The family of this 101-nucleotide RNA from Paenibacillus sp. TCA20 is "Purine riboswitch aptamer". Its family is annotated with purine nucleobase biosynthetic process in the Gene Ontology. A reference for the family is Mandal et al. (2003), "Riboswitches Control Fundamental Biochemical Pathways in Bacillus subtilis and Other Bacteria", Cell. It scores 72 bits against the family's covariance model. The family's consensus secondary structure is taken from published work.
RNA sequence: ACCAAUAAACACAUGCUUUUUCGUAUAAUCUCGGGGAUUUGGCCUGAGAGUUUCUACGAGAUCACCAUAAUGAUCUGGCUACGAAAAGAAGAGAAGUGCAA
Numbered sequence: 001a002c003c004a005a006u007a008a009a010c011a012c013a014u015g016c017u018u019u020u021u022c023g024u025a026u027a028a029u030c031u032c033g034g035g036g037a038u039u040u041g042g043c044c045u046g047a048g049a050g051u052u053u054c055u056a057c058g059a060g061a062u063c064a065c066c067a068u069a070a071u072g073a074u075c076u077g078g079c080u081a082c083g084a085a086a087a088g089a090a091g092a093g094a095a096g097u098g099c100a101a
Base pairs, nucleotide, nucleotide: 018087019086020085021084022083023082024081025080029049030048031047032046033045034044035043059076060075061074062073063072064071